[Rfam]
Source information:
The record is a 119-nucleotide sequence from Solanum lycopersicum, which matches "U5 spliceosomal RNA" in Rfam. The literature on the family includes a 1996 paper in J Biol Chem by Hinz et al., "Domain analysis of human U5 RNA. Cap trimethylation, protein binding, and spliceosome assembly". The family's RNA type in Rfam is spliceosomal small nuclear RNA. NCBI's taxonomy places the organism under Eukaryota, Viridiplantae, Embryophyta, Gunneridae, Solanum subgen. Lycopersicon. U5 RNA is a component of both types of known spliceosome. The precise function of this molecule is unknown, though it is known that the 5' loop is required for splice site selection and p220 binding, and that both the 3' stem-loop and the Sm site are important for Sm protein binding and cap methylation.

RNA sequence: AGCCACGCAGUGAGCACAUAGCGAACUAUUCUUUCGCCUUUUACUAAAGAAUACCGUGUGCGCGUUGCAAUUAGUGGCAUACGCUAAUUUUUGGAGGGAUUUUCUUAACUGAAGAUCCC
Numbered sequence: 001a002g003c004c005a006c007g008c009a010g011u012g013a014g015c016a017c018a019u020a021g022c023g024a025a026c027u028a029u030u031c032u033u034u035c036g037c038c039u040u041u042u043a044c045u046a047a048a049g050a051a052u053a054c055c056g057u058g059u060g061c062g063c064g065u066u067g068c069a070a071u072u073a074g075u076g077g078c079a080u081a082c083g084c085u086a087a088u089u090u091u092u093g094g095a096g097g098g099a100u101u102u103u104c105u106u107a108a109c110u111g112a113a114g115a116u117c118c119c
Stems, first nucleotide, its partner, number of pairs: 003077004008067005014061005027053008097118006
Dot-bracket structure: ..((((.(((((.(((((........((((((((...........))))))))...))))).)))))......))))...................((((((..........)))))).